[Rfam]
RNA sequence: AACUUAUCAAGAGUAGGCGGAGGGACUAGCCCGAUGAAGCCCGGCAACCGACUUUAGAUUCCCAUCAGAAUCUGAGGCACGGUGCUAAUUCUUGCAGCGUAAGAGCUGAGAGAUAAGGG
Numbered sequence: 001a002a003c004u005u006a007u008c009a010a011g012a013g014u015a016g017g018c019g020g021a022g023g024g025a026c027u028a029g030c031c032c033g034a035u036g037a038a039g040c041c042c043g044g045c046a047a048c049c050g051a052c053u054u055u056a057g058a059u060u061c062c063c064a065u066c067a068g069a070a071u072c073u074g075a076g077g078c079a080c081g082g083u084g085c086u087a088a089u090u091c092u093u094g095c096a097g098c099g100u101a102a103g104a105g106c107u108g109a110g111a112g113a114u115a116a117g118g119g
Base pairs, nucleotide, nucleotide: 003117004116005115006114007113008112013042016041017040018039022032023031024030026094028092029091043086044085045084046083048082049081050078052076053075090111095108096107097106098105
Dot-bracket structure: ..((((((....(..(((...(((.[.[[)))......))))((((.(((.((.....................)).)..))))))...(]].]((((......))))..)))))))..
A member of the RNA family "SAM riboswitch aptamer (S box leader)" from Bacillus mesophilus, 119 nucleotides long. Rfam's curators write: The SAM riboswitch is found upstream of a number of genes which code for proteins involved in methionine or cysteine biosynthesis in Gram-positive bacteria. A search with the family's covariance model found it, with a score of 75 bits. The family's consensus secondary structure is taken from published work.